[Rfam]
RNA sequence: AGCCAUGUGGUGAGCACAAAGCGAACUAUUCUUUCGCCUUUUACUAAAGAAUACCGUGUGCUCUCCAUGCUAAGUGGCAUACGCUUAUUUUUGGAGGGAUCUGCCUUUGGGUGGAC
Numbered sequence: 001a002g003c004c005a006u007g008u009g010g011u012g013a014g015c016a017c018a019a020a021g022c023g024a025a026c027u028a029u030u031c032u033u034u035c036g037c038c039u040u041u042u043a044c045u046a047a048a049g050a051a052u053a054c055c056g057u058g059u060g061c062u063c064u065c066c067a068u069g070c071u072a073a074g075u076g077g078c079a080u081a082c083g084c085u086u087a088u089u090u091u092u093g094g095a096g097g098g099a100u101c102u103g104c105c106u107u108u109g110g111g112u113g114g115a116c
Stems, first nucleotide, its partner, number of pairs: 003077004008067003012063007027053008100115005